The record is a 222-nucleotide RNA from Streptomyces sp. ISL-12, which matches "Streptomyces sRNA 4677" in Rfam.
A search with the family's covariance model found it, with a score of 61 bits.
The organism belongs to Streptomyces, within Bacteria.
The literature on the family includes a 2014 paper in PLoS One by Hindra et al., "Complex intra-operonic dynamics mediated by a small RNA in Streptomyces coelicolor".
The family has 12 seed sequences and 563 matches in Rfam 15.1.
Located in the intergenic region between anti-sigma factor SCO4677 gene and a putative regulatory protein gene SCO4676. scr4677 expression requires the SCO4677 activity and scr4677 sRNA itself seem to affect the levels of the SCO4676-associated transcripts.
RNA sequence: GGCGGUGAAAGACCAAAGAACUCGGGGAAAGAACCCUCCCAACCCGACCAAACCCGGUGUACGUCACCCGGGUGGGUGAAAGGGGCUGGCGGGGCUGGCGCGGGCGUCGCGCGGGCGGGCACUCUCGGGAUCAGGCAACUCCGCCGCAUAUGACUGCGGCCCCCGCCGGGACUUGCACUCCCAGGGCGAGGGCCUCACCACGUAGGAAGCGAGACCUUCCCU
Numbered sequence: 001g002g003c004g005g006u007g008a009a010a011g012a013c014c015a016a017a018g019a020a021c022u023c024g025g026g027g028a029a030a031g032a033a034c035c036c037u038c039c040c041a042a043c044c045c046g047a048c049c050a051a052a053c054c055c056g057g058u059g060u061a062c063g064u065c066a067c068c069c070g071g072g073u074g075g076g077u078g079a080a081a082g083g084g085g086c087u088g089g090c091g092g093g094g095c096u097g098g099c100g101c102g103g104g105c106g107u108c109g110c111g112c113g114g115g116c117g118g119g120c121a122c123u124c125u126c127g128g129g130a131u132c133a134g135g136c137a138a139c140u141c142c143g144c145c146g147c148a149u150a151u152g153a154c155u156g157c158g159g160c161c162c163c164c165g166c167c168g169g170g171a172c173u174u175g176c177a178c179u180c181c182c183a184g185g186g187c188g189a190g191g192g193c194c195u196c197a198c199c200a201c202g203u204a205g206g207a208a209g210c211g212a213g214a215c216c217u218u219c220c221c222u
Stems, first nucleotide, its partner, number of pairs: 004054003064079006095134004158194005164188003168182004205220005